[Rfam]
RNA sequence: UGAUACCAAGGUCAUGCUGUUCAUGCUUGCAUGAAAAAGCAUGACUUUGGGACCCACAAAACAUGAGAAAGUAGCCAUUUUUCGUAGAAAAAUGAGUGGAUUUCGAAUGUUUUUAGGAUUUCGUGAGCGUGAAACGCGGAGAAAUCCGUAGGUAUCA
Numbered sequence: 001u002g003a004u005a006c007c008a009a010g011g012u013c014a015u016g017c018u019g020u021u022c023a024u025g026c027u028u029g030c031a032u033g034a035a036a037a038a039g040c041a042u043g044a045c046u047u048u049g050g051g052a053c054c055c056a057c058a059a060a061a062c063a064u065g066a067g068a069a070a071g072u073a074g075c076c077a078u079u080u081u082u083c084g085u086a087g088a089a090a091a092a093u094g095a096g097u098g099g100a101u102u103u104c105g106a107a108u109g110u111u112u113u114u115a116g117g118a119u120u121u122c123g124u125g126a127g128c129g130u131g132a133a134a135c136g137c138g139g140a141g142a143a144a145u146c147c148g149u150a151g152g153u154a155u156c157a
Stems, first nucleotide, its partner, number of pairs: 001157007010054004014042005020036001021034005058113007067104004074097002076094008116147007127137004